[Rfam]
RNA sequence: UAUUCAUCAAGAGUUAGCUGAGGGAUUGGCCCGAUGAAGCUACGGCAACCACCGCAUACUGCGAACGGUGCCAAUUCCAACAGGAGUAUUCCUGGGAGAUGAAGA
Numbered sequence: 001u002a003u004u005c006a007u008c009a010a011g012a013g014u015u016a017g018c019u020g021a022g023g024g025a026u027u028g029g030c031c032c033g034a035u036g037a038a039g040c041u042a043c044g045g046c047a048a049c050c051a052c053c054g055c056a057u058a059c060u061g062c063g064a065a066c067g068g069u070g071c072c073a074a075u076u077c078c079a080a081c082a083g084g085a086g087u088a089u090u091c092c093u094g095g096g097a098g099a100u101g102a103a104g105a
Stems, first nucleotide, its partner, number of pairs: 001105001003103006013043001015042004022032003026080004044072004049068002053063002076097001081094005
RNA: SAM riboswitch aptamer (S box leader)